[Rfam]
About this RNA
Shown here is a 78-nucleotide RNA sequence from Trichobilharzia regenti, a member of the family "mir-3492 microRNA precursor family".
RNA sequence: AGCCUUCUGUAUUCGUGCUGAGAUUUCGUCAGUGAUCAACUCGUUGGAGUUGAUGCGACUUCUCAAAUAAGUGAAGUG
Numbered sequence: 001a002g003c004c005u006u007c008u009g010u011a012u013u014c015g016u017g018c019u020g021a022g023a024u025u026u027c028g029u030c031a032g033u034g035a036u037c038a039a040c041u042c043g044u045u046g047g048a049g050u051u052g053a054u055g056c057g058a059c060u061u062c063u064c065a066a067a068u069a070a071g072u073g074a075a076g077u078g
Stems, first nucleotide, its partner, number of pairs: 002077002005074002008071001010069004017062001020061003024058002027055004
The family's consensus secondary structure was predicted with RNAalifold.
The match comes from Rfam's covariance-model search (53 bits).
Gene Ontology terms of the family: miRNA-mediated post-transcriptional gene silencing and RISC complex.